Shown here is an 85-nucleotide RNA from Colobus angolensis, a member of the family "mir-571 microRNA precursor family".
Gene Ontology terms of the family: miRNA-mediated post-transcriptional gene silencing and RISC complex.
The family has 4 seed sequences and 202 matches in Rfam 15.1.
[Rfam]
RNA sequence: AAUGUGACCAAGUUGAGUGAGUCAUUUUCUGGUCUGUAACCAAGAUAAGGAGCCCUCAAGUUUGCCACCUGAAUGAGGACCUGCC
Numbered sequence: 001a002a003u004g005u006g007a008c009c010a011a012g013u014u015g016a017g018u019g020a021g022u023c024a025u026u027u028u029c030u031g032g033u034c035u036g037u038a039a040c041c042a043a044g045a046u047a048a049g050g051a052g053c054c055c056u057c058a059a060g061u062u063u064g065c066c067a068c069c070u071g072a073a074u075g076a077g078g079a080c081c082u083g084c085c
Stems, first nucleotide, its partner, number of pairs: 003083002006080001008078002012074003016070002018067002021065002024062001026060003032053002035050001037048001039046001